Background:
U4 spliceosomal RNA: a 139-nucleotide sequence from Leptobrachium leishanense. On this family, see Plaschka et al., Nature 2017: "Structure of a pre-catalytic spliceosome". Rfam classes the family as a spliceosomal small nuclear RNA. The match comes from Rfam's covariance-model search (112 bits). U4 small nuclear RNA (U4 snRNA) is a component of the major U2-dependent spliceosome.
[Rfam]
RNA sequence: AGCUUUGCGCAGUGGCAGUAUCGUAGCCAAUGAGGUUUAUCCGAGGCGCGAUUAUUGCUAAUUGAAAACUUUUCCCAAUACCCCACCGUGACGGAUUGAAAUAUAGCCGGCACCGGCAAUUUGACAGUCUCUACAGAGA
Numbered sequence: 001a002g003c004u005u006u007g008c009g010c011a012g013u014g015g016c017a018g019u020a021u022c023g024u025a026g027c028c029a030a031u032g033a034g035g036u037u038u039a040u041c042c043g044a045g046g047c048g049c050g051a052u053u054a055u056u057g058c059u060a061a062u063u064g065a066a067a068a069c070u071u072u073u074c075c076c077a078a079u080a081c082c083c084c085a086c087c088g089u090g091a092c093g094g095a096u097u098g099a100a101a102u103a104u105a106g107c108c109g110g111c112a113c114c115g116g117c118a119a120u121u122u123g124a125c126a127g128u129c130u131c132u133a134c135a136g137a138g139a
Stems, first nucleotide, its partner, number of pairs: 020052005026047003034042002086116002088113003092109003096105001128139004